[Rfam]
Nucleotides: 190
Base pairs, nucleotide, nucleotide: 029053031051032050033049060189061188063186064185080184081183083181084180086177087176088175095132096131097130098129099128104124105123106122107121108120109119110118111117134160136159137158138157139156140155
Number, partner (000 for none) and nucleotide at each position: 001000a002000c003000a004000a005000g006000g007000u008000c009000c010000a011000u012000u013000u014000a015000a016000a017000u018000a019000u020000a021000u022000g023000g024000a025000u026000a027000u028000c029053u030000a031051c032050u033049u034000u035000c036000g037000a038000u039000u040000a041000u042000g043000g044000c045000u046000a047000a048000a049033g050032a051031g052000g053029a054000c055000c056000u057000u058000a059000a060189u061188u062000g063186g064185u065000c066000c067000u068000a069000g070000a071000a072000c073000g074000g075000c076000c077000u078000g079000a080184g081183g082000u083181a084180g085000a086177g087176g088175g089000g090000u091000u092000u093000u094000a095132g096131u097130c098129g099128g100000u101000a102000g103000g104124u105123c106122c107121g108120a109119g110118g111117a112000c113000u114000u115000c116000u117111u118110c119109c120108u121107c122106g123105g124104g125000a126000a127000u128099c129098c130097g131096a132095c133000a134160c135000u136159a137158c138157c139156c140155a141000g142000u143000u144000g145000u146000a147000c148000g149000g150000a151000c152000g153000g154000c155140u156139g157138g158137g159136u160134g161000u162000c163000u164000u165000u166000u167000g168000a169000a170000g171000a172000u173000u174000u175088c176087c177086c178000c179000u180084c181083u182000u183081c184080c185064a186063c187000g188061a189060a190000a
Notes
Shown here is a 190-nucleotide RNA from Agrilus planipennis, a member of the family "R2 RNA element". The organism belongs to Agrilus, within Eukaryota. Rfam 15.1 lists 3,698 matches to the family in 74 species. The match comes from Rfam's covariance-model search (50 bits). A reference for the family is Luan et al. (1993), "Reverse transcription of R2Bm RNA is primed by a nick at the chromosomal target site: a mechanism for non-LTR retrotransposition", Cell.